A member of the RNA family "Clostridiales-2 RNA" from Alkaliphilus metalliredigens, 84 nucleotides long. Rfam classes the family as a small RNA. Rfam's curators put it in the seed alignment. Lineage of the source: Bacteria > Bacillota > Peptostreptococcales > Natronincolaceae > Alkaliphilus metalliredigens.

RNA sequence: AAAAAACAGGGGUUGAAAGGGGAAACAUUCCCCUUCCUCAUUCAGGAGGGUGCUCAGACUGUGGAAACAGUCGUCGAAGGGGAC
Dot-bracket structure: ..............((.((((((.....))))))))....................(((((......)))))............